[Rfam]
RNA: Small nucleolar RNA SNORA81
Organism: Trichechus manatus
RNA sequence: UGCAAUGAGUUCAAGCUCUGUGCUAAAACUGCAGAAACUGGUAUCAUGUCUUAGUGUUUGUAAUAGAGCUGGUGGAGUAAACACAAGAAGAGAAGCAGCUGCACCAGAGAGUUGACAGGCUGAGAUGAACCUCUUUCUUCCGUCCAGAGUGCUCUGUUCUCACGUUUAGUACAACAGUG
Numbered sequence: 001u002g003c004a005a006u007g008a009g010u011u012c013a014a015g016c017u018c019u020g021u022g023c024u025a026a027a028a029c030u031g032c033a034g035a036a037a038c039u040g041g042u043a044u045c046a047u048g049u050c051u052u053a054g055u056g057u058u059u060g061u062a063a064u065a066g067a068g069c070u071g072g073u074g075g076a077g078u079a080a081a082c083a084c085a086a087g088a089a090g091a092g093a094a095g096c097a098g099c100u101g102c103a104c105c106a107g108a109g110a111g112u113u114g115a116c117a118g119g120c121u122g123a124g125a126u127g128a129a130c131c132u133c134u135u136u137c138u139u140c141c142g143u144c145c146a147g148a149g150u151g152c153u154c155u156g157u158u159c160u161c162a163c164g165u166u167u168a169g170u171a172c173a174a175c176a177g178u179g
Stems, first nucleotide, its partner, number of pairs: 018077002021074005029066003034058002037055005043049002100173002103170002106167003122150001126146002129143001